[Rfam]
RNA sequence: CUUCGACAAUAGCAAACCCAUUGAAAGAUGGGGACGCAAAGCUACGGGCCUAAAGGAAGAUUUCUAUGGCAGCCGGGUUGCCGAA
Number, nucleotide and partner (000 for none) at each position: 001c000002u000003u000004c000005g000006a000007c000008a000009a000010u000011a000012g037013c036014a000015a000016a000017c032018c031019c030020a029021u028022u027023g000024a000025a000026a000027g022028a021029u020030g019031g018032g017033g000034a000035c000036g013037c012038a000039a000040a079041g078042c077043u076044a000045c075046g074047g073048g070049c069050c068051u000052a000053a000054a000055g064056g063057a062058a000059g000060a000061u000062u057063u056064c055065u000066a000067u000068g050069g049070c048071a000072g000073c047074c046075g045076g043077g042078u041079u040080g000081c000082c000083g000084a000085a000
This 85-nucleotide RNA sequence from Heyndrickxia shackletonii belongs to the Rfam family "c-di-GMP-I riboswitch aptamer". About the family: GEMM was predicted in a large-scale screen for bacterial structured RNA regulatory elements. NCBI's taxonomy places the organism under Bacteria, Bacillati, Bacillota, Bacillaceae, Heyndrickxia. The family's consensus secondary structure is taken from published work.